RNA sequence: GCCGGCGUAGCUCAGAUGGCCAGAGCGGCGAUUUUGUAAGUCGAGGGUCGGGGGUUCGAAUCCCUCCGCCGGCA
Numbered sequence: 001g002c003c004g005g006c007g008u009a010g011c012u013c014a015g016a017u018g019g020c021c022a023g024a025g026c027g028g029c030g031a032u033u034u035u036g037u038a039a040g041u042c043g044a045g046g047g048u049c050g051g052g053g054g055u056u057c058g059a060a061u062c063c064c065u066c067c068g069c070c071g072g073c074a
Base pairs, nucleotide, nucleotide: 001073002072003071004070005069006068007067010026011025012024013023029043030042031041032040050066051065052064053063054062